[Rfam]
This 103-nucleotide sequence from Radiobacillus deserti belongs to the Rfam family "EGFOA RNA". Taxonomically the source falls in Radiobacillus (Bacteria, Bacillati, Bacillota, Bacillaceae).

RNA sequence: UAAUCCCUAGAUUUAUACCGUUGCAGAGCCUUUGGCUGGUGGCAUGACAGAGUUAUUUAGAAUAUACGUGAUAAAGCUGCACCUAAAAACGUUGAAUGUCAUG
Dot-bracket structure: .......[[[.........[[.[[[[((((...)))).....(((((((....(((.....))).((((.......]]]]]]]]]...))))....)))))))
Numbered sequence: 001u002a003a004u005c006c007c008u009a010g011a012u013u014u015a016u017a018c019c020g021u022u023g024c025a026g027a028g029c030c031u032u033u034g035g036c037u038g039g040u041g042g043c044a045u046g047a048c049a050g051a052g053u054u055a056u057u058u059a060g061a062a063u064a065u066a067c068g069u070g071a072u073a074a075a076g077c078u079g080c081a082c083c084u085a086a087a088a089a090c091g092u093u094g095a096a097u098g099u100c101a102u103g
Stems, first nucleotide, its partner, number of pairs: 008085003020082002023080004027037004043103007054064003066092004